[Rfam]
RNA sequence: AGCUGGAUCUAGUAAACCGUCUGAAAGGGCGGGACACAAAGCCACGGGGCCUAACGCGCCGUCCCCUGCGGGGGAGGGGGCCAUGGCAGCCCAGCCGCCGGA
Dot-bracket structure: ...........((...((((((....))))))...))...((...((((((....((.(..................).))...)))..))).)).......
This 102-nucleotide RNA from Oscillibacter sp. 1-3 belongs to the Rfam family "c-di-GMP-I riboswitch aptamer".
Gene Ontology term of the family: cyclic-di-GMP binding.
Lineage of the source: Bacteria > Bacillati > Bacillota > Oscillospiraceae > Oscillibacter.
The match comes from Rfam's covariance-model search (50 bits).
Pairs were carried over by alignment from the consensus structure, which is taken from published work.